[Rfam]
The family of this 100-nucleotide RNA from Salisediminibacterium halotolerans is "Purine riboswitch aptamer".
For this family Rfam cites "Structure of a natural guanine-responsive riboswitch complexed with the metabolite hypoxanthine" (Batey et al., Nature, 2004).
Rfam links the family to the GO term purine nucleobase biosynthetic process.
RNA sequence: AAACGAUAUAGGAUAAACUGUCGUAUAACCUCAAUAAUACGGUUUGAGGGUCUCUAACAGGUGCCGAAAAUACCUGACUACGAAAAGCCGCUGCGCUGCG
Numbered sequence: 001a002a003a004c005g006a007u008a009u010a011g012g013a014u015a016a017a018c019u020g021u022c023g024u025a026u027a028a029c030c031u032c033a034a035u036a037a038u039a040c041g042g043u044u045u046g047a048g049g050g051u052c053u054c055u056a057a058c059a060g061g062u063g064c065c066g067a068a069a070a071u072a073c074c075u076g077a078c079u080a081c082g083a084a085a086a087g088c089c090g091c092u093g094c095g096c097u098g099c100g
Base pairs, nucleotide, nucleotide: 019085021083022082023081024080025079029049030048031047032046033045034044058076059075060074061073062072063071